Shown here is a 106-nucleotide sequence, a member of the family "EGFOA RNA".
The sequence is in the family's curated seed alignment.
[Rfam]
RNA sequence: ACACCCUUAGAAUAUCCGUCCUAGUGUCGUAAGACAGGGUUAAACAACGAACAUCUAUGAUAGGUGUACUUGAUAAAGCUAGACCUAAGCAAGUUUGAGUUGCAAG
Numbered sequence: 001a002c003a004c005c006c007u008u009a010g011a012a013u014a015u016c017c018g019u020c021c022u023a024g025u026g027u028c029g030u031a032a033g034a035c036a037g038g039g040u041u042a043a044a045c046a047a048c049g050a051a052c053a054u055c056u057a058u059g060a061u062a063g064g065u066g067u068a069c070u071u072g073a074u075a076a077a078g079c080u081a082g083a084c085c086u087a088a089g090c091a092a093g094u095u096u097g098a099g100u101u102g103c104a105a106g
Stems, first nucleotide, its partner, number of pairs: 006089005018084002021082004025036004041106001045102004051067006068094005